[Rfam]
RNA sequence: AAUGUGUAUAUGAUGAUCACCAAGCAAUGCAUAGUUCAUCUGAAACUACUGAUGAGACCUACACCUUCACAAAGUCUUUCGCUCCCAUCUGAUUACACCAU
Numbered sequence: 001a002a003u004g005u006g007u008a009u010a011u012g013a014u015g016a017u018c019a020c021c022a023a024g025c026a027a028u029g030c031a032u033a034g035u036u037c038a039u040c041u042g043a044a045a046c047u048a049c050u051g052a053u054g055a056g057a058c059c060u061a062c063a064c065c066u067u068c069a070c071a072a073a074g075u076c077u078u079u080c081g082c083u084c085c086c087a088u089c090u091g092a093u094u095a096c097a098c099c100a101u
Base pairs, nucleotide, nucleotide: 004098005097006096007095008094

Small nucleolar RNA snR60/Z15/Z230/Z193/J17: a 101-nucleotide sequence from Metarhizium acridum. The match comes from Rfam's covariance-model search (66 bits). The literature on the family includes a 1999 paper in Science by Lowe and Eddy, "A computational screen for methylation guide snoRNAs in yeast". The pairing is the family consensus, mapped onto this sequence.